[Rfam]
RNA: mir-1545 microRNA precursor family
RNA sequence: AGUGCGCAGGGAUAGAUAAGAGGUCACUUUAGAAUCCACUUUCCAUCCCUUGCACUGU
Numbered sequence: 001a002g003u004g005c006g007c008a009g010g011g012a013u014a015g016a017u018a019a020g021a022g023g024u025c026a027c028u029u030u031a032g033a034a035u036c037c038a039c040u041u042u043c044c045a046u047c048c049c050u051u052g053c054a055c056u057g058u
Stems, first nucleotide, its partner, number of pairs: 001056005008050006015043002018040001020039001022036003